L13-Bacteroidia ribosomal protein leader: a 74-nucleotide RNA from Prevotella sp. CAG:1058. For this family Rfam cites "Discovery of 20 novel ribosomal leader candidates in bacteria and archaea" (Eckert and Weinberg, BMC Microbiol, 2020). The family's consensus secondary structure is taken from published work. Rfam classes the family as a cis-regulatory leader. The match comes from Rfam's covariance-model search (72 bits).

RNA sequence: GGGGGAGCACUUAGAACCCCUGGAACGGAGUGUUAAUAGUCGUACUUUUGGCCGAGUGCGACGGUUAGUGAAUC
Numbered sequence: 001g002g003g004g005g006a007g008c009a010c011u012u013a014g015a016a017c018c019c020c021u022g023g024a025a026c027g028g029a030g031u032g033u034u035a036a037u038a039g040u041c042g043u044a045c046u047u048u049u050g051g052c053c054g055a056g057u058g059c060g061a062c063g064g065u066u067a068g069u070g071a072a073u074c
Base pairs, nucleotide, nucleotide: 001020002019003018004017033068034067035066036065037064039062040061041060042059043058044057045056046055047054